[Rfam]
RNA: Small nucleolar RNA SNORA65
Organism: Pipistrellus kuhlii
RNA sequence: CCUGCCUCUGGACCUGACCACUUUCCUGAUGGCUGGUGCAUUCCAGUGGUGAGCUAAAACUAAACCUCAGCUUAGGAAACAGGGUUAUUUUUCACGUGGAUGACGCUGUGCUGAAAGCAUGGGAACAACG
Numbered sequence: 001c002c003u004g005c006c007u008c009u010g011g012a013c014c015u016g017a018c019c020a021c022u023u024u025c026c027u028g029a030u031g032g033c034u035g036g037u038g039c040a041u042u043c044c045a046g047u048g049g050u051g052a053g054c055u056a057a058a059a060c061u062a063a064a065c066c067u068c069a070g071c072u073u074a075g076g077a078a079a080c081a082g083g084g085u086u087a088u089u090u091u092u093c094a095c096g097u098g099g100a101u102g103a104c105g106c107u108g109u110g111c112u113g114a115a116a117g118c119a120u121g122g123g124a125a126c127a128a129c130g
Stems, first nucleotide, its partner, number of pairs: 005049002008046003017037004022031001065123003069120001070118004075112002080108003084104002088100003